FMN riboswitch aptamer (RFN element): a 117-nucleotide RNA from a Candidatus Hydrogenedentota bacterium.
RNA sequence: AUGCGUCUUCGGGACAGGGUGCAAUUCCCUACCGGCGGUGAAAGCCCGCGAGCGCUUCGGCGCAGACCCGGCGAAAUUCCGGGGCCGACGGUAAAGUCCGGACGGGAGAAGAUAGCC
Numbered sequence: 001a002u003g004c005g006u007c008u009u010c011g012g013g014a015c016a017g018g019g020u021g022c023a024a025u026u027c028c029c030u031a032c033c034g035g036c037g038g039u040g041a042a043a044g045c046c047c048g049c050g051a052g053c054g055c056u057u058c059g060g061c062g063c064a065g066a067c068c069c070g071g072c073g074a075a076a077u078u079c080c081g082g083g084g085c086c087g088a089c090g091g092u093a094a095a096g097u098c099c100g101g102a103c104g105g106g107a108g109a110a111g112a113u114a115g116c117c
Stems, first nucleotide, its partner, number of pairs: 005113006017029003031097002033087002035049004044085002052063003067083005089100003
The match comes from Rfam's covariance-model search (111 bits).
The base pairs follow the family's consensus structure, which is taken from published work.